A member of the RNA family "c-di-GMP-I riboswitch aptamer" from Halalkalibacter okhensis, 87 nucleotides long. A reference for the family is Weinberg et al. (2007), "Identification of 22 candidate structured RNAs in bacteria using the CMfinder comparative genomics pipeline", Nucleic Acids Res. A search with the family's covariance model found it, with a score of 85 bits.
[Rfam]
RNA sequence: AUAGGAAAAAGGCAAACUACUCGAAAGUGUAGGACGCAAAGCCUAGGGACUAAGGUAUAUUCAUACUAUGUUCGCCUGGUUGCCAAG
Numbered sequence: 001a002u003a004g005g006a007a008a009a010a011g012g013c014a015a016a017c018u019a020c021u022c023g024a025a026a027g028u029g030u031a032g033g034a035c036g037c038a039a040a041g042c043c044u045a046g047g048g049a050c051u052a053a054g055g056u057a058u059a060u061u062c063a064u065a066c067u068a069u070g071u072u073c074g075c076c077u078g079g080u081u082g083c084c085a086a087g
Stems, first nucleotide, its partner, number of pairs: 012037002017032004022027001040081004045077003048072003055066004